[Rfam]
Background: The family of this 87-nucleotide RNA sequence from Camphora micrantha is "Small nucleolar RNA snoR26". By type it is a C/D-box small nucleolar RNA. The match comes from Rfam's covariance-model search (55 bits). On this family, see Brown et al., RNA 2001: "Multiple snoRNA gene clusters from Arabidopsis".
RNA sequence: GAAGCAUUUAUGAUGUUUAAUUCCUAUUGUUAUCCUUGCACUUGAUUAUCAAUGAAGAAACAUACAUGGAGGUUGGCUGAGGUGCUC
Numbered sequence: 001g002a003a004g005c006a007u008u009u010a011u012g013a014u015g016u017u018u019a020a021u022u023c024c025u026a027u028u029g030u031u032a033u034c035c036u037u038g039c040a041c042u043u044g045a046u047u048a049u050c051a052a053u054g055a056a057g058a059a060a061c062a063u064a065c066a067u068g069g070a071g072g073u074u075g076g077c078u079g080a081g082g083u084g085c086u087c
Base pairs, nucleotide, nucleotide: 003086004085005084006083007082008081